[Rfam]
RNA sequence: CUGGCAACAACAUCCUGGUGCUGCCUGAGUAGUUGUCACAAACUCCAGCAUCAGUGAUUUUGUUGCUGG
Numbered sequence: 001c002u003g004g005c006a007a008c009a010a011c012a013u014c015c016u017g018g019u020g021c022u023g024c025c026u027g028a029g030u031a032g033u034u035g036u037c038a039c040a041a042a043c044u045c046c047a048g049c050a051u052c053a054g055u056g057a058u059u060u061u062g063u064u065g066c067u068g069g
Base pairs, nucleotide, nucleotide: 006064007063008062009061010060012058013057014056015054016053017052018051019050020049021048022047023046
The family of this 69-nucleotide RNA sequence from Oreochromis niloticus is "mir-338 microRNA precursor family". A search with the family's covariance model found it, with a score of 79 bits. Rfam links the family to the GO terms RISC complex and miRNA-mediated post-transcriptional gene silencing.